A member of the RNA family "MIR4371 microRNA precursor family" from Glycine max, 147 nucleotides long.
RNA sequence: CCAUUAAGUGAUGAUGUGACAAUUAGAGUGCCACAUCAUCAUGCCUUGUCAUAGACACCUCAUUGUCAUGCCAUCACCUUCAAUGACAUGUCAGUGAUUAGACAUGAUGAUGUGGCACUUCGUCUAUCACGUCAUCACUUAAGAGAA
Numbered sequence: 001c002c003a004u005u006a007a008g009u010g011a012u013g014a015u016g017u018g019a020c021a022a023u024u025a026g027a028g029u030g031c032c033a034c035a036u037c038a039u040c041a042u043g044c045c046u047u048g049u050c051a052u053a054g055a056c057a058c059c060u061c062a063u064u065g066u067c068a069u070g071c072c073a074u075c076a077c078c079u080u081c082a083a084u085g086a087c088a089u090g091u092c093a094g095u096g097a098u099u100a101g102a103c104a105u106g107a108u109g110a111u112g113u114g115g116c117a118c119u120u121c122g123u124c125u126a127u128c129a130c131g132u133c134a135u136c137a138c139u140u141a142a143g144a145g146a147a
Base pairs, nucleotide, nucleotide: 001145004142005141006140007139008138009137010136011135012134013133014132015131016130017129018128019127021125024122026120027119028118029117030116031115032114033113034112035111036110037109038108039107040106041105042104043103045101046100048098049097050096051095052094054092055091056090057089072085073084074083

The family's consensus secondary structure was predicted with RNAalifold.